[Rfam]
RNA sequence: AUCAUUAUUAUCGCCAUUCCUUAUCCGGCGGGCUGAGCUGCAUCUCUUUACCCAAACCCGCCUCCGAGGCGGGUUUG
Numbered sequence: 001a002u003c004a005u006u007a008u009u010a011u012c013g014c015c016a017u018u019c020c021u022u023a024u025c026c027g028g029c030g031g032g033c034u035g036a037g038c039u040g041c042a043u044c045u046c047u048u049u050a051c052c053c054a055a056a057c058c059c060g061c062c063u064c065c066g067a068g069g070c071g072g073g074u075u076u077g
Stems, first nucleotide, its partner, number of pairs: 011031005054076009

This 77-nucleotide sequence from Pseudomonas asplenii belongs to the Rfam family "Pseudomonas sRNA P9". From the family's description: This small RNA (sRNA) was computationally identified in the genome of the opportunistic pathogen Pseudomonas aeruginosa and its expression verified by northern blot analysis. P9 appears to be conserved in several Pseudomonas species in addition to Bordetella spp. In both Pseudomonas and Bordetella spp P9 appears to be located upstream of a predicted threonine dehydratase gene. P9 has a predicted Rho independent terminator at the 3' end but the function of P9 is unknown. This sRNA also appears to be present in the Betaproteobacteria (Burkholderia and Ralstonia species). The literature on the family includes a 2006 paper in Nucleic Acids Res by Livny et al., "Identification of 17 Pseudomonas aeruginosa sRNAs and prediction of sRNA-encoding genes in 10 diverse pathogens using the bioinformatic tool sRNAPredict2". It is annotated as a non-coding RNA gene.